[Rfam]
RNA sequence: CCCCUUGAAAAGCACAGAUAAAAUGUCCAUCUUGUUGAUGCUGAUUCGUCAGCUAUGGCAAUAAACGGCUUAUGAAAUAGACGUUACGGACCCGGGGGCAGUGCCCGGCGUCUCCACCAUUUCUUUAUACCUUUGUUAUCAAGGUGAUUUUAUGGGGACGAAACAGGAUCGACGUGCGUAAUAAAGAUAUUCUUUUUGCUCGGCAUGGUACCACCGUUACCGGACUAAAACUCUAUAAGUGCCAAUGAUAACCAUGAGGUGCUCGCUGUCGCUGCCUAAUACGCAGAGAUAAGCGCGGUUUGGGAGGGCACCGGGCAACAGAAGCCUUCCCA
Numbered sequence: 001c002c003c004c005u006u007g008a009a010a011a012g013c014a015c016a017g018a019u020a021a022a023a024u025g026u027c028c029a030u031c032u033u034g035u036u037g038a039u040g041c042u043g044a045u046u047c048g049u050c051a052g053c054u055a056u057g058g059c060a061a062u063a064a065a066c067g068g069c070u071u072a073u074g075a076a077a078u079a080g081a082c083g084u085u086a087c088g089g090a091c092c093c094g095g096g097g098g099c100a101g102u103g104c105c106c107g108g109c110g111u112c113u114c115c116a117c118c119a120u121u122u123c124u125u126u127a128u129a130c131c132u133u134u135g136u137u138a139u140c141a142a143g144g145u146g147a148u149u150u151u152a153u154g155g156g157g158a159c160g161a162a163a164c165a166g167g168a169u170c171g172a173c174g175u176g177c178g179u180a181a182u183a184a185a186g187a188u189a190u191u192c193u194u195u196u197u198g199c200u201c202g203g204c205a206u207g208g209u210a211c212c213a214c215c216g217u218u219a220c221c222g223g224a225c226u227a228a229a230a231c232u233c234u235a236u237a238a239g240u241g242c243c244a245a246u247g248a249u250a251a252c253c254a255u256g257a258g259g260u261g262c263u264c265g266c267u268g269u270c271g272c273u274g275c276c277u278a279a280u281a282c283g284c285a286g287a288g289a290u291a292a293g294c295g296c297g298g299u300u301u302g303g304g305a306g307g308g309c310a311c312c313g314g315g316c317a318a319c320a321g322a323a324g325c326c327u328u329c330c331c332a
Base pairs, nucleotide, nucleotide: 040053041052042051043050044049057200058199059198060197061196067193068192071189072188073187082178083177084176086175087174088173092108093107094106095105096104109160110159111158112157113156114155115154201216202215203214206227207226208225211223212222296313297312298311299310303329304328305327306326307325
The family of this 332-nucleotide sequence from an Acetobacteraceae bacterium is "Alphaproteobacteria transfer-messenger RNA". From the family's description: Bacterial tmRNA, also known as 10Sa RNA or SsrA, is named for its dual tRNA and mRNA-like properties. Rfam classes the family as a non-coding RNA gene. Taxonomically the source falls in Acetobacteraceae (Bacteria, Pseudomonadota, Alphaproteobacteria, Acetobacterales).